This 241-nucleotide sequence from Saccharata proteae belongs to the Rfam family "Small nucleolar RNA snR191". The match comes from Rfam's covariance-model search (52 bits). Taxonomically the source falls in Saccharata proteae (Eukaryota, Fungi, Dikarya, saccharomyceta).
Nucleotides: 241
Stems, first nucleotide, its partner, number of pairs: 003073002005069001017060004023054002025050002028040003084158001086156005094119006102110002121147002126142001128140005161235004167229003178221005185214004190203003
Number, partner (000 for none) and nucleotide at each position: 001000u002000c003073c004072c005069a006000u007000c008000g009000c010000u011000a012000a013000g014000u015000c016000a017060a018059g019058g020057c021000u022000c023054c024053u025050u026049c027000c028040u029039g030038c031000a032000c033000u034000c035000g036000u037000u038030g039029c040028g041000u042000u043000u044000u045000c046000a047000a048000u049026g050025g051000a052000u053024a054023g055000a056000u057020g058019u059018c060017u061000g062000u063000u064000a065000c066000a067000g068000c069005u070000u071000u072004g073003g074000g075000a076000a077000a078000g079000c080000a081000a082000u083000c084158u085000c086156c087155a088154u089153c090152c091000g092000c093000c094119g095118c096117u097116u098115a099114c100000u101000a102110c103109c104000g105000u106000c107000a108000u109103g110102g111000u112000u113000u114099g115098u116097a117096a118095g119094c120000u121147g122146g123000u124000c125000a126142g127000a128140c129139u130138c131137c132136g133000u134000c135000u136132u137131g138130g139129a140128g141000a142126c143000u144000g145000g146122c147121c148000g149000c150000u151000a152090g153089g154088a155087u156086g157000g158084a159000a160000a161235a162234u163233g164232a165000u166000c167229c168228g169227u170000u171000u172000u173000u174000g175000a176000g177000u178221a179220g180219a181218g182217g183000a184000c185214c186213g187212c188211u189000a190203c191202c192201g193000c194000u195000g196000u197000u198000u199000g200000g201192u202191g203190g204000g205000u206000u207000c208000c209000g210000u211188a212187g213186c214185g215000g216000c217182u218181c219180u220179c221178u222000u223000a224000g225000u226000a227169a228168c229167g230000u231000u232164u233163c234162a235161u236000a237000c238000a239000u240000c241000c
Its Rfam clan is "SNORA74 clan". On this family, see Badis et al., RNA 2003: "A snoRNA that guides the two most conserved pseudouridine modifications within rRNA confers a growth advantage in yeast".